The record is a 116-nucleotide RNA from Methylotuvimicrobium alcaliphilum, which matches "Group II catalytic intron D1-D4-2" in Rfam. On this family, see Lehmann and Schmidt, Crit Rev Biochem Mol Biol 2003: "Group II introns: structure and catalytic versatility of large natural ribozymes". The source organism's lineage runs through Bacteria, Pseudomonadota, Gammaproteobacteria, Methylotuvimicrobium and Methylotuvimicrobium alcaliphilum.
[Rfam]
RNA sequence: GAUGGUAGGUCCAUCAAAGUCUGUUGUCGGAAACCGGCUUUAAACCACCUCAAGCUGCUUGUAUUAAGAGUGCAGGUAGUGAGCGUUGAGGAAAAGCUAAUUCAUAAUUAGCAGGU
Numbered sequence: 001g002a003u004g005g006u007a008g009g010u011c012c013a014u015c016a017a018a019g020u021c022u023g024u025u026g027u028c029g030g031a032a033a034c035c036g037g038c039u040u041u042a043a044a045c046c047a048c049c050u051c052a053a054g055c056u057g058c059u060u061g062u063a064u065u066a067a068g069a070g071u072g073c074a075g076g077u078a079g080u081g082a083g084c085g086u087u088g089a090g091g092a093a094a095a096g097c098u099a100a101u102u103c104a105u106a107a108u109u110a111g112c113a114g115g116u
Stems, first nucleotide, its partner, number of pairs: 001015005016041006023034003046115001048091006054080002057077003061073004096112006